This 73-nucleotide RNA sequence from a Candidatus Latescibacterota bacterium belongs to the Rfam family "tRNA". From the family's description: Transfer RNA (tRNA) molecules are approximately 80 nucleotides in length. NCBI's taxonomy places the organism under Bacteria, Pseudomonadati, Candidatus Latescibacterota. The base pairs follow the family's consensus structure, which is taken from published work. The family's RNA type in Rfam is transfer RNA.

RNA sequence: GGUCCUAUCGUCUAGUGGUUUAGGACAUCACUCUUUCAAGGUGAAGACACGGGUUCGACUCCCGUUAGGACCA
Number, nucleotide and partner (000 for none) at each position: 001g072002g071003u070004c069005c068006u067007a066008u000009c000010g026011u025012c024013u023014a000015g000016u000017g000018g000019u000020u000021u000022a000023g013024g012025a011026c010027a000028u044029c043030a042031c041032u040033c000034u000035u000036u000037c000038a000039a000040g032041g031042u030043g029044a028045a000046g000047a000048c000049a065050c064051g063052g062053g061054u000055u000056c000057g000058a000059c000060u000061c053062c052063c051064g050065u049066u007067a006068g005069g004070a003071c002072c001073a000